[Rfam]
RNA sequence: CUCUUUUAUUCAAAAGAAAACGUCUGGUUUAGGGUUCCAGACUAGCUUUAGAUAAUGUUGAGUUUGCAGCUUCGGCUCAGAUGUAGUAACAUUGUUCAAAGUGAACGUAAAGGCAUCUU
Numbered sequence: 001c002u003c004u005u006u007u008a009u010u011c012a013a014a015a016g017a018a019a020a021c022g023u024c025u026g027g028u029u030u031a032g033g034g035u036u037c038c039a040g041a042c043u044a045g046c047u048u049u050a051g052a053u054a055a056u057g058u059u060g061a062g063u064u065u066g067c068a069g070c071u072u073c074g075g076c077u078c079a080g081a082u083g084u085a086g087u088a089a090c091a092u093u094g095u096u097c098a099a100a101g102u103g104a105a106c107g108u109a110a111a112g113g114c115a116u117c118u119u
Stems, first nucleotide, its partner, number of pairs: 002017005022042006045102003048098001050096001057090004062082002068077003

A member of the RNA family "RAGATH-11 RNA" from Halteria grandinella, 119 nucleotides long. On this family, see Weinberg et al., Nat Chem Biol 2015: "New classes of self-cleaving ribozymes revealed by comparative genomics analysis". Lineage of the source: Eukaryota > Alveolata > Intramacronucleata > Spirotrichea > Halteria. A search with the family's covariance model found it, with a score of 80 bits. The family's RNA type in Rfam is small RNA.